The record is a 122-nucleotide sequence from Anaeromonas frigoriresistens, which matches "FMN riboswitch aptamer (RFN element)" in Rfam. It scores 125 bits against the family's covariance model. The organism belongs to Anaeromonas, within Bacteria.
RNA sequence: GUUAAUCUUCAGGGCAGGGUGAAAUUCCCGACCGGCGGUAAAGUCCGCGACCCGUAUGAAAAUACGGUUGACUUGGUGAAAUUCCAGGACCGACAGUAAAGUCUGGAUGGAAGAGGAUUAAG
Numbered sequence: 001g002u003u004a005a006u007c008u009u010c011a012g013g014g015c016a017g018g019g020u021g022a023a024a025u026u027c028c029c030g031a032c033c034g035g036c037g038g039u040a041a042a043g044u045c046c047g048c049g050a051c052c053c054g055u056a057u058g059a060a061a062a063u064a065c066g067g068u069u070g071a072c073u074u075g076g077u078g079a080a081a082u083u084c085c086a087g088g089a090c091c092g093a094c095a096g097u098a099a100a101g102u103c104u105g106g107a108u109g110g111a112a113g114a115g116g117a118u119u120a121a122g
Stems, first nucleotide, its partner, number of pairs: 003120008017029003031102002033092002035048004043090002052067002072088005094105003